[Rfam]
RNA sequence: UAUACAUAACAGCAAUAGCAGAAGCGUUCAUGUUGUGGUCCUGUCAGAUUUUAACAAAUUUGCAGAUUCUGCU
Numbered sequence: 001u002a003u004a005c006a007u008a009a010c011a012g013c014a015a016u017a018g019c020a021g022a023a024g025c026g027u028u029c030a031u032g033u034u035g036u037g038g039u040c041c042u043g044u045c046a047g048a049u050u051u052u053a054a055c056a057a058a059u060u061u062g063c064a065g066a067u068u069c070u071g072c073u
Stems, first nucleotide, its partner, number of pairs: 012039002017073007024036003045062007
Mammalian CPEB3 ribozyme: a 73-nucleotide RNA sequence from Crocodylus porosus.
A reference for the family is Salehi-Ashtiani et al. (2006), "A genomewide search for ribozymes reveals an HDV-like sequence in the human CPEB3 gene", Science.
The source organism's lineage runs through Eukaryota, Craniata, Amniota, Crocodylia and Crocodylus.
Pairs were carried over by alignment from the consensus structure, which is taken from published work.